[Rfam]
The record is a 188-nucleotide RNA sequence from Metabacillus indicus, which matches "6S / SsrS RNA" in Rfam. Rfam classes the family as a non-coding RNA gene. NCBI's taxonomy places the organism under Bacteria, Bacillati, Bacilli, Bacillaceae, Metabacillus. For this family Rfam cites "6S RNA regulates E. coli RNA polymerase activity" (Wassarman and Storz, Cell, 2000). The match comes from Rfam's covariance-model search (93 bits). Rfam's curators write: E. coli 6S RNA was the first non coding RNA to be sequenced, but its function was unknown until recently. It consists of 184 nucleotides that fold into an extended hairpin structure with a large single-stranded internal bulge.
RNA sequence: UACAAGCUGCAUUGUGCGUAAUGAUAAUUAAGUUUUAACCUUUAAGCUGUAAUAGGGAGUUUUACAUCGCACCCGGAAUGUCAUGCCUCCAUUUGCAGAGGAAGACAGGAAGGCUGCUGCAAACACCCACUUUGAGAAGUGGUGGUUUAAAACUUUCUUACGUGACUUACGGCAAUUGUGGCUUCUAU
Numbered sequence: 001u002a003c004a005a006g007c008u009g010c011a012u013u014g015u016g017c018g019u020a021a022u023g024a025u026a027a028u029u030a031a032g033u034u035u036u037a038a039c040c041u042u043u044a045a046g047c048u049g050u051a052a053u054a055g056g057g058a059g060u061u062u063u064a065c066a067u068c069g070c071a072c073c074c075g076g077a078a079u080g081u082c083a084u085g086c087c088u089c090c091a092u093u094u095g096c097a098g099a100g101g102a103a104g105a106c107a108g109g110a111a112g113g114c115u116g117c118u119g120c121a122a123a124c125a126c127c128c129a130c131u132u133u134g135a136g137a138a139g140u141g142g143u144g145g146u147u148u149a150a151a152a153c154u155u156u157c158u159u160a161c162g163u164g165a166c167u168u169a170c171g172g173c174a175a176u177u178g179u180g181g182c183u184u185c186u187a188u
Base pairs, nucleotide, nucleotide: 002186004184005183006182007181008180009179010178011177012175013174014173015172017171018170019169031154032153033152034151036149037148038147039145040144055128056127057126059124060123061122062121066118069117070116071115073113074112080106081105086101087100088099089098